[Rfam]
RNA sequence: GAUCAGUGAUGAAAACAGCCCGAUCUGAGCAUCAGAAGACCUUCCAUCCACCUGAUGCGUGAUCUCUCUAGUUCUGAGA
Numbered sequence: 001g002a003u004c005a006g007u008g009a010u011g012a013a014a015a016c017a018g019c020c021c022g023a024u025c026u027g028a029g030c031a032u033c034a035g036a037a038g039a040c041c042u043u044c045c046a047u048c049c050a051c052c053u054g055a056u057g058c059g060u061g062a063u064c065u066c067u068c069u070a071g072u073u074c075u076g077a078g079a
Stems, first nucleotide, its partner, number of pairs: 029058005038048002
Rfam assigns this 79-nucleotide RNA sequence from Pipistrellus kuhlii to the family "Small nucleolar RNA U2-19". The family's RNA type in Rfam is C/D-box small nucleolar RNA. For this family Rfam cites "Guide RNAs with 5' Caps and Novel Box C/D snoRNA-like Domains for Modification of snRNAs in Metazoa" (Tycowski et al., Curr Biol, 2004). Lineage of the source: Eukaryota > Opisthokonta > Chordata > Gnathostomata > Pipistrellus. It scores 76 bits against the family's covariance model.